[Rfam]
RNA sequence: UCCACCUUCAGCCGAUACGCAUGGUGCGCUCGACGCGCUGGCGGAGCUCAGCGCGUCGAGCGCACCAUGCGUAUCGGCUGAAGGUGGA
Numbered sequence: 001u002c003c004a005c006c007u008u009c010a011g012c013c014g015a016u017a018c019g020c021a022u023g024g025u026g027c028g029c030u031c032g033a034c035g036c037g038c039u040g041g042c043g044g045a046g047c048u049c050a051g052c053g054c055g056u057c058g059a060g061c062g063c064a065c066c067a068u069g070c071g072u073a074u075c076g077g078c079u080g081a082a083g084g085u086g087g088a
Stems, first nucleotide, its partner, number of pairs: 001088028030059003035056003
mir-1278 microRNA precursor family: an 88-nucleotide RNA sequence from a Methanobacteriota archaeon. Pairs were carried over by alignment from the consensus structure, which was predicted with RNAalifold. NCBI's taxonomy places the organism under Archaea, Methanobacteriati, Methanobacteriota. Rfam links the family to the GO terms miRNA-mediated post-transcriptional gene silencing and RISC complex.